RNA sequence: GUCUGGGGUCCCCAGGGCACUGUUUUCCUUUCAUGAUCAGAUCCCACUGUAGGCAGCAAUGCCAGCUGGGAGCCUGAGAAAGUUAUACAAACAUGUCAGGUAAAGUGGGGUCAGGGGACCCGGGU
Dot-bracket structure: (((..((((((((.....((................((((.(.((...((.((((....)))).))..)).).))))................................))..)))))))).)))
Numbered sequence: 001g002u003c004u005g006g007g008g009u010c011c012c013c014a015g016g017g018c019a020c021u022g023u024u025u026u027c028c029u030u031u032c033a034u035g036a037u038c039a040g041a042u043c044c045c046a047c048u049g050u051a052g053g054c055a056g057c058a059a060u061g062c063c064a065g066c067u068g069g070g071a072g073c074c075u076g077a078g079a080a081a082g083u084u085a086u087a088c089a090a091a092c093a094u095g096u097c098a099g100g101u102a103a104a105g106u107g108g109g110g111u112c113a114g115g116g117g118a119c120c121c122g123g124g125u
Stems, first nucleotide, its partner, number of pairs: 001125003006121008019111002037077004042072001044070002049066002052063004

small Cajal body-specific RNA 17: a 125-nucleotide RNA from Cebus imitator. Its family is annotated with RNA processing, Cajal body and nucleolus in the Gene Ontology. It is annotated as a small Cajal body RNA. scaRNAs are a specific class of small nuclear RNAs which localise to the Cajal bodies and guide the modification of RNA polymerase II transcribed spliceosomal RNAs U1, U2, U4, U5 and U12. The complete human U12-22/U4-8 scaRNA is composed of two tandem C/D box domains (termed U12-22 and U4-8).